[Rfam]
RNA sequence: UAAAUGAUUGAGAACCAUUUGAAUCAAGCAACGUAGGGUUUCAAAUGGUUCUCAUCA
Number, nucleotide and partner (000 for none) at each position: 001u000002a000003a000004a000005u000006g000007a000008u000009u054010g053011a052012g051013a050014a049015c048016c047017a046018u045019u044020u043021g042022a041023a040024u000025c038026a000027a000028g000029c000030a000031a000032c000033g000034u000035a000036g000037g000038g025039u000040u023041u022042c021043a020044a019045a018046u017047g016048g015049u014050u013051c012052u011053c010054a009055u000056c000057a000

Source information:
This 57-nucleotide RNA sequence from Oxalis drummondii belongs to the Rfam family "Plastid-ccsA-ndhD-1 3UTR RNA". Rfam describes the family as follows. Plastid-ccsA-ndhD-1 is a non-coding RNA (ncRNA) recognised in plastids. The family's consensus secondary structure was predicted with LocARNA. Rfam classes the family as a cis-regulatory element. The family has 488 seed sequences and 1,322 matches in Rfam 15.1. For this family Rfam cites "Retrograde signaling in plants: A critical review focusing on the GUN pathway and beyond" (Richter et al., Plant Commun, 2023).